[Rfam]
RNA sequence: GUGUUGAAAAGGCAAACUAUUCGAAAGAGUAGGACGCAAAGCAAAGGGUCUAAUGUUGAAAAACGAUGAUCGCCUGGCUACCAAA
Numbered sequence: 001g002u003g004u005u006g007a008a009a010a011g012g013c014a015a016a017c018u019a020u021u022c023g024a025a026a027g028a029g030u031a032g033g034a035c036g037c038a039a040a041g042c043a044a045a046g047g048g049u050c051u052a053a054u055g056u057u058g059a060a061a062a063a064c065g066a067u068g069a070u071c072g073c074c075u076g077g078c079u080a081c082c083a084a085a
Stems, first nucleotide, its partner, number of pairs: 012037002017032006040079003045075003048070003055064003